The record is a 100-nucleotide RNA sequence from Teichococcus coralli, which matches "Glycine riboswitch aptamer" in Rfam. This family represents the bacterial glycine riboswitch. A search with the family's covariance model found it, with a score of 62 bits.
RNA sequence: UGAUCCCGCGCGGGAGAGAACGGCUGCCGCUGGCGGCGGCCGUCGCCGAAGGCGCAACCGGCCCCCGGAAACGCUCAGGCAGAAGGGCCGCGCGGAGAAG
Numbered sequence: 001u002g003a004u005c006c007c008g009c010g011c012g013g014g015a016g017a018g019a020a021c022g023g024c025u026g027c028c029g030c031u032g033g034c035g036g037c038g039g040c041c042g043u044c045g046c047c048g049a050a051g052g053c054g055c056a057a058c059c060g061g062c063c064c065c066c067g068g069a070a071a072c073g074c075u076c077a078g079g080c081a082g083a084a085g086g087g088c089c090g091c092g093c094g095g096a097g098a099a100g
Stems, first nucleotide, its partner, number of pairs: 006095008020043007045080003048076002052074003058068002